[Rfam]
RNA sequence: UAGCUUUGUACUAAGUCAAACUUCUUUAACUUUGACCAAGUCUUUAAAAAAUAUAUUAACAUCUAUAGUGCCAAAUAAAUACACAAUCCAAGAUAUAUUUUAUGUUAGAUCUAAUAAAACUAAUUGGAUAUUGUUAAUGUUGAUACUUUUUUCCUAUAAACUUGGUCAAAGUUACAAAAGUUUGACUUAUGACAAAGCUAA
Numbered sequence: 001u002a003g004c005u006u007u008g009u010a011c012u013a014a015g016u017c018a019a020a021c022u023u024c025u026u027u028a029a030c031u032u033u034g035a036c037c038a039a040g041u042c043u044u045u046a047a048a049a050a051a052u053a054u055a056u057u058a059a060c061a062u063c064u065a066u067a068g069u070g071c072c073a074a075a076u077a078a079a080u081a082c083a084c085a086a087u088c089c090a091a092g093a094u095a096u097a098u099u100u101u102a103u104g105u106u107a108g109a110u111c112u113a114a115u116a117a118a119a120c121u122a123a124u125u126g127g128a129u130a131u132u133g134u135u136a137a138u139g140u141u142g143a144u145a146c147u148u149u150u151u152u153c154c155u156a157u158a159a160a161c162u163u164g165g166u167c168a169a170a171g172u173u174a175c176a177a178a179a180g181u182u183u184g185a186c187u188u189a190u191g192a193c194a195a196a197g198c199u200a201a
Stems, first nucleotide, its partner, number of pairs: 005196005012189012025177002031170005045156002048152004054145003058141005065134003072127001074125003
This 201-nucleotide RNA sequence from Dichanthelium oligosanthes belongs to the Rfam family "MIR1435 microRNA precursor family".
Gene Ontology terms of the family: RISC complex and miRNA-mediated post-transcriptional gene silencing.
It scores 98 bits against the family's covariance model.
The source organism's lineage runs through Eukaryota, Spermatophyta, commelinids, Poales and Dichanthelium.
Pairs were carried over by alignment from the consensus structure, which was predicted with RNAalifold.